[Rfam]
A member of the RNA family "ASpks TB sRNA" from Streptomyces sp. 150FB, 75 nucleotides long. A reference for the family is Arnvig and Young (2009), "Identification of small RNAs in Mycobacterium tuberculosis", Mol Microbiol.
RNA sequence: CUUCAACGACCCGAGCAGCAGCGGCCGUUCCGCGUCGCGCUGCUGCCCGUACGUCGCGAGCAGCGCCUGCGCCUC
Numbered sequence: 001c002u003u004c005a006a007c008g009a010c011c012c013g014a015g016c017a018g019c020a021g022c023g024g025c026c027g028u029u030c031c032g033c034g035u036c037g038c039g040c041u042g043c044u045g046c047c048c049g050u051a052c053g054u055c056g057c058g059a060g061c062a063g064c065g066c067c068u069g070c071g072c073c074u075c
Stems, first nucleotide, its partner, number of pairs: 015025002031071003038065002043060002047056001049054001